[Rfam]
Guanidine-I riboswitch aptamer: a 102-nucleotide RNA from Mesobacillus persicus. The match comes from Rfam's covariance-model search (85 bits). Rfam links the family to the GO term regulation of gene expression. The pairing is the family consensus, mapped onto this sequence. The source organism's lineage runs through Bacteria, Bacillota, Bacilli, Bacillaceae and Mesobacillus.
RNA sequence: UUGAAUGUUUUCUAGGGUUCCGCAAACACCGUCAAGUUUGGACUGGUCCGAGAGAAAACUCACAGCUUGUCUGUGCCACGGAGGGAUAAAAGCCCGGGAGAU
Numbered sequence: 001u002u003g004a005a006u007g008u009u010u011u012c013u014a015g016g017g018u019u020c021c022g023c024a025a026a027c028a029c030c031g032u033c034a035a036g037u038u039u040g041g042a043c044u045g046g047u048c049c050g051a052g053a054g055a056a057a058a059c060u061c062a063c064a065g066c067u068u069g070u071c072u073g074u075g076c077c078a079c080g081g082a083g084g085g086a087u088a089a090a091a092g093c094c095c096g097g098g099a100g101a102u
Base pairs, nucleotide, nucleotide: 007059008058009057010056011055012054015049016048020046021045022043023040024039025038026037027036061075062074063073064072065071077097079100083095084094085093